[Rfam]
RNA sequence: GCGACUGGCCGGGCCCCUCUGGCAGUUCGAAAGAACUGCGAUGUCGGACUGUUUCC
Numbered sequence: 001g002c003g004a005c006u007g008g009c010c011g012g013g014c015c016c017c018u019c020u021g022g023c024a025g026u027u028c029g030a031a032a033g034a035a036c037u038g039c040g041a042u043g044u045c046g047g048a049c050u051g052u053u054u055c056c
Stems, first nucleotide, its partner, number of pairs: 007049001009047004022039007